[Rfam]
Nucleotides: 176
Stems, first nucleotide, its partner, number of pairs: 003174008017029003031156002033145002035087004090121002125141005147159003
Number, partner (000 for none) and nucleotide at each position: 001000g002000c003174u004173u005172a006171u007170u008169c009168u010167c011000a012000g013000g014000g015000c016000g017029g018028g019027g020000c021000g022000a023000a024000a025000c026000u027019c028018c029017c030000c031156a032155c033145c034144g035087g036086c037085g038084g039000u040000a041000a042000a043000c044000c045000c046000g047000u048000g049000u050000g051000a052000u053000g054000a055000u056000u057000g058000c059000c060000a061000u062000u063000a064000g065000u066000g067000a068000u069000u070000a071000u072000u073000g074000c075000a076000c077000a078000g079000g080000a081000a082000g083000c084038c085037c086036g087035c088000g089000a090121g091120c092000g093000c094000u095000c096000a097000g098000a099000u100000u101000g102000c103000c104000g105000u106000a107000a108000g109000a110000u111000u112000u113000g114000a115000g116000g117000u118000c119000a120091g121090c122000a123000g124000a125141c126140c127139c128138g129137g130000u131000g132000u133000a134000a135000u136000u137129c138128c139127g140126g141125g142000g143000c144034c145033g146000a147159c148158g149157g150000u151000u152000a153000u154000a155032g156031u157149c158148c159147g160000g161000a162000u163000g164000g165000g166000a167010g168009a169008g170007a171006g172005u173004a174003a175000c176000g